The family of this 142-nucleotide sequence from Carlito syrichta is "Small nucleolar RNA U109". It is annotated as an H/ACA-box small nucleolar RNA. The family has 26 seed sequences and 1,405 matches in Rfam 15.1. It scores 87 bits against the family's covariance model. The literature on the family includes a 2003 paper in EMBO J by Richard et al., "A common sequence motif determines the Cajal body-specific localization of box H/ACA scaRNAs".

[Rfam]
RNA sequence: UUACAUUUGAAAAUACUUGUUCCUCAUUUCUUAGGAAGCAGGACUACAUUCAUAACAUGCUCUGUUAAAAAAAAAAAAAAGGAGUUCUCAGGGCUGCCGACCUUACAGUAGAGGUUAAUAGUGUUAUAUUUCUCCCACUGAA
Numbered sequence: 001u002u003a004c005a006u007u008u009g010a011a012a013a014u015a016c017u018u019g020u021u022c023c024u025c026a027u028u029u030c031u032u033a034g035g036a037a038g039c040a041g042g043a044c045u046a047c048a049u050u051c052a053u054a055a056c057a058u059g060c061u062c063u064g065u066u067a068a069a070a071a072a073a074a075a076a077a078a079a080a081g082g083a084g085u086u087c088u089c090a091g092g093g094c095u096g097c098c099g100a101c102c103u104u105a106c107a108g109u110a111g112a113g114g115u116u117a118a119u120a121g122u123g124u125u126a127u128a129u130u131u132c133u134c135c136c137a138c139u140g141a142a
Stems, first nucleotide, its partner, number of pairs: 004059003008055001016042006023035001081135004093122002099116006
Dot-bracket structure: ...(((.(.......((((((.(...........).))))))............).))).....................((((........((....((((((......))))))....)).........)))).......